[Rfam]
RNA sequence: AUAUUUGUGCUUGGGACUAUGACGCAACUGAUGAGGUUCUAAUCGAGGCGCAUCCACUGUUGGUUGAAAGCAAUUUCCAAGUCCCCUCUUGGGCCUAGAUUCGGCCUAAGCCAUCGAGAAUAUUUGGAAGGGGUCCCUUCUGGGAAAAGCCC
Numbered sequence: 001a002u003a004u005u006u007g008u009g010c011u012u013g014g015g016a017c018u019a020u021g022a023c024g025c026a027a028c029u030g031a032u033g034a035g036g037u038u039c040u041a042a043u044c045g046a047g048g049c050g051c052a053u054c055c056a057c058u059g060u061u062g063g064u065u066g067a068a069a070g071c072a073a074u075u076u077c078c079a080a081g082u083c084c085c086c087u088c089u090u091g092g093g094c095c096u097a098g099a100u101u102c103g104g105c106c107u108a109a110g111c112c113a114u115c116g117a118g119a120a121u122a123u124u125u126g127g128a129a130g131g132g133g134u135c136c137c138u139u140c141u142g143g144g145a146a147a148a149g150c151c152c
Base pairs, nucleotide, nucleotide: 021054022053024051025050028048029047035044036043037042086118087117088116092112093111094110096108097107098105131152132151133150134149
RNA: U4 spliceosomal RNA
Organism: Coffea arabica